[Rfam]
RNA sequence: GCCGCGGGCCGUGACUGGCGCUGAGGUGGAGUACCACCGGGGAGCGGCCCCUGGAGAAGUCGACGUGGAGUCGAUGCCGUGCGCCUGGGCGAACCGG
Numbered sequence: 001g002c003c004g005c006g007g008g009c010c011g012u013g014a015c016u017g018g019c020g021c022u023g024a025g026g027u028g029g030a031g032u033a034c035c036a037c038c039g040g041g042g043a044g045c046g047g048c049c050c051c052u053g054g055a056g057a058a059g060u061c062g063a064c065g066u067g068g069a070g071u072c073g074a075u076g077c078c079g080u081g082c083g084c085c086u087g088g089g090c091g092a093a094c095c096g097g
Stems, first nucleotide, its partner, number of pairs: 003053002006050007015041002017085005026037004075091004
This 97-nucleotide sequence from Streptomyces caeruleatus belongs to the Rfam family "ZMP/ZTP riboswitch aptamer (pfl RNA motif)". Pairs were carried over by alignment from the consensus structure, which is taken from published work. The literature on the family includes a 2015 paper in Nat Struct Mol Biol by Jones and Ferre-D'Amare, "Recognition of the bacterial alarmone ZMP through long-distance association of two RNA subdomains".